[Rfam]
Shown here is a 111-nucleotide RNA from Tupaia belangeri, a member of the family "Small nucleolar RNA SNORD23".
RNA sequence: UGCCCAGUGAUGAGACCAUCCUUGCUCCCCAUGCUCCCCAGGGGGCUGUGGGUGACACUAUGGCUGCCCCCGGGCUGGGCCAGGUGGGCCAGAGCCCGGGGGCUGAGGGCA
Numbered sequence: 001u002g003c004c005c006a007g008u009g010a011u012g013a014g015a016c017c018a019u020c021c022u023u024g025c026u027c028c029c030c031a032u033g034c035u036c037c038c039c040a041g042g043g044g045g046c047u048g049u050g051g052g053u054g055a056c057a058c059u060a061u062g063g064c065u066g067c068c069c070c071c072g073g074g075c076u077g078g079g080c081c082a083g084g085u086g087g088g089c090c091a092g093a094g095c096c097c098g099g100g101g102g103c104u105g106a107g108g109g110c111a
Base pairs, nucleotide, nucleotide: 001111002110003109004108005107
NCBI's taxonomy places the organism under Eukaryota, Bilateria, Gnathostomata, Tetrapoda, Tupaia. The family has 15 seed sequences and 153 matches in Rfam 15.1.